This 62-nucleotide RNA sequence belongs to the Rfam family "S15-Flavobacteria ribosomal protein leader". Clan: Ribosomal Protein S15 Leader clan. It is annotated as a cis-regulatory leader.

RNA sequence: UAUCUUUGCCGCUGAUGGAAAAUCCAUUUGUACAUAAAAAUCAUUGAAAUAAUAUUGGAAUG
Numbered sequence: 001u002a003u004c005u006u007u008g009c010c011g012c013u014g015a016u017g018g019a020a021a022a023u024c025c026a027u028u029u030g031u032a033c034a035u036a037a038a039a040a041u042c043a044u045u046g047a048a049a050u051a052a053u054a055u056u057g058g059a060a061u062g
Stems, first nucleotide, its partner, number of pairs: 014028006